[Rfam]
RNA: Metazoan signal recognition particle RNA
Organism: Caligus rogercresseyi
RNA sequence: GCUGGAGUCUGUGGCGGGCUCUGUAAUCCAGCUACUGGGAAGCUCAAGUUUGUGGAUGGUUUGAGGUUGGGAGCCCUGCUGAUCAUGCUGCACGUUGAACCGGCGUCCGCACUAAGCUUGGCGUCAACAUGGGUACCCUGGAUGAGUCCGGGGUAUCCAGGUUGUCUAACGAGAUAUGCACAAGGUCUAGGGGAGAAAUCUAACAGCCUAAAGUAUCCGCGGCAAGCAGUAGUGGAUCUCACUGGCGAGUGAGUGCUGUUCAGUUGCCCAGUCAAUACAGGCAGACCAAACUUUUU
Numbered sequence: 001g002c003u004g005g006a007g008u009c010u011g012u013g014g015c016g017g018g019c020u021c022u023g024u025a026a027u028c029c030a031g032c033u034a035c036u037g038g039g040a041a042g043c044u045c046a047a048g049u050u051u052g053u054g055g056a057u058g059g060u061u062u063g064a065g066g067u068u069g070g071g072a073g074c075c076c077u078g079c080u081g082a083u084c085a086u087g088c089u090g091c092a093c094g095u096u097g098a099a100c101c102g103g104c105g106u107c108c109g110c111a112c113u114a115a116g117c118u119u120g121g122c123g124u125c126a127a128c129a130u131g132g133g134u135a136c137c138c139u140g141g142a143u144g145a146g147u148c149c150g151g152g153g154u155a156u157c158c159a160g161g162u163u164g165u166c167u168a169a170c171g172a173g174a175u176a177u178g179c180a181c182a183a184g185g186u187c188u189a190g191g192g193g194a195g196a197a198a199u200c201u202a203a204c205a206g207c208c209u210a211a212a213g214u215a216u217c218c219g220c221g222g223c224a225a226g227c228a229g230u231a232g233u234g235g236a237u238c239u240c241a242c243u244g245g246c247g248a249g250u251g252a253g254u255g256c257u258g259u260u261c262a263g264u265u266g267c268c269c270a271g272u273c274a275a276u277a278c279a280g281g282c283a284g285a286c287c288a289a290a291c292u293u294u295u296u
Base pairs, nucleotide, nucleotide: 001043002042003041004022005021006020007019008018009017010016011015027040028039029038046293047292048291049290050289051288052287057283058282060280061279065273066272067271068270069269070268071267076266078264079263080262081261082260087256088255089253091251092250093249095247100245101244102243103242105240107235110234111233112232113231114230116227117226118225119224120223122221123220124219125164126163127162128161130159131158132157133156134155135154136153137152138151139150140149141148142147165171173217174216175215176214177213183209184208185207186206192201193200194199